osmY RNA: a 70-nucleotide RNA sequence.
RNA sequence: GCAGUCACGUCGUUUGUGACUGAAAGCUCACACUUGUGAGUGUAAUAACAUGAAGAAGGAAUGAUCGAUG
Numbered sequence: 001g002c003a004g005u006c007a008c009g010u011c012g013u014u015u016g017u018g019a020c021u022g023a024a025a026g027c028u029c030a031c032a033c034u035u036g037u038g039a040g041u042g043u044a045a046u047a048a049c050a051u052g053a054a055g056a057a058g059g060a061a062u063g064a065u066c067g068a069u070g
Stems, first nucleotide, its partner, number of pairs: 002022008026041005